[Rfam]
RNA sequence: GGGAAAUGAGGAGUGGUCGAGUCUUGCAUUAAAUAUGCAAGUUGGGUGUUCGCCCCAAGCCUGGUUACGACAAUUGGGCACUCUCCUUUAAUCAAUCUGAUCC
Numbered sequence: 001g002g003g004a005a006a007u008g009a010g011g012a013g014u015g016g017u018c019g020a021g022u023c024u025u026g027c028a029u030u031a032a033a034u035a036u037g038c039a040a041g042u043u044g045g046g047u048g049u050u051c052g053c054c055c056c057a058a059g060c061c062u063g064g065u066u067a068c069g070a071c072a073a074u075u076g077g078g079c080a081c082u083c084u085c086c087u088u089u090a091a092u093c094a095a096u097c098u099g100a101u102c103c
Stems, first nucleotide, its partner, number of pairs: 002103003014094004023041005044083007062076004
Annotation:
The record is a 103-nucleotide sequence from Trifolium pratense, which matches "Small nucleolar RNA Z279/snoR105/snoR108" in Rfam. The family has 20 seed sequences and 906 matches in Rfam 15.1. Gene Ontology terms of the family: nucleolus and RNA processing. A reference for the family is Marker et al. (2002), "Experimental RNomics: identification of 140 candidates for small non-messenger RNAs in the plant Arabidopsis thaliana", Curr Biol. This family includes the plant snoRNAs known as Z279, snoR105 and snoR108. The match comes from Rfam's covariance-model search (81 bits). Its Rfam clan is "snoU13 clan". It is annotated as a C/D-box small nucleolar RNA.